[Rfam]
RNA sequence: GCUUUAGACGACGGUUUGAAGCGGGGAGUGCAGAGAAUAAUAGUAAUCAGCGACUAUAAUCUGGCUUAUCACGGGUUGUGCCGACCUAACUUGCGGUGACGUUAAGUUAGGACAUCGCCGACAUGGCGGGAUUAAGGUUCGAUGAGAUCGGAGCUGACUCAUUGUUGUAGGUAUUCCAAAGUCCUACCUCCCACCUU
Numbered sequence: 001g002c003u004u005u006a007g008a009c010g011a012c013g014g015u016u017u018g019a020a021g022c023g024g025g026g027a028g029u030g031c032a033g034a035g036a037a038u039a040a041u042a043g044u045a046a047u048c049a050g051c052g053a054c055u056a057u058a059a060u061c062u063g064g065c066u067u068a069u070c071a072c073g074g075g076u077u078g079u080g081c082c083g084a085c086c087u088a089a090c091u092u093g094c095g096g097u098g099a100c101g102u103u104a105a106g107u108u109a110g111g112a113c114a115u116c117g118c119c120g121a122c123a124u125g126g127c128g129g130g131a132u133u134a135a136g137g138u139u140c141g142a143u144g145a146g147a148u149c150g151g152a153g154c155u156g157a158c159u160c161a162u163u164g165u166u167g168u169a170g171g172u173a174u175u176c177c178a179a180a181g182u183c184c185u186a187c188c189u190c191c192c193a194c195c196u197u
Stems, first nucleotide, its partner, number of pairs: 001022009024192005032062002041056004066134001068132003072083003077123003085111009115129005140164007150177003167187005

The record is a 197-nucleotide RNA from Photobacterium sp. SKA34, which matches "manA RNA" in Rfam. Rfam's curators write: manA RNA has been located in 5'UTR regions of genes of mannose or fructose metabolism. Has been proposed as a cis-regulatory element and as a riboswitch candidate for his complex secondary structure. Taxonomically the source falls in Photobacterium (Bacteria, Pseudomonadati, Gammaproteobacteria, Vibrionales). The family's RNA type in Rfam is cis-regulatory element. The sequence is in the family's curated seed alignment.